[Rfam]
RNA sequence: GUAAAAGUCGUUGGAGGCAGCGGUUCAUCGAUCUCUUCCUGGUAAAAUUUUGUUUAAAAAAAAACAUGAACAGAUCGAUAAACCUCUGCAUCCAGCGUUUGCCUC
Dot-bracket structure: ............(((..(((.((((.(((((((..(((.............................)))..))))))).)))).)))..)))............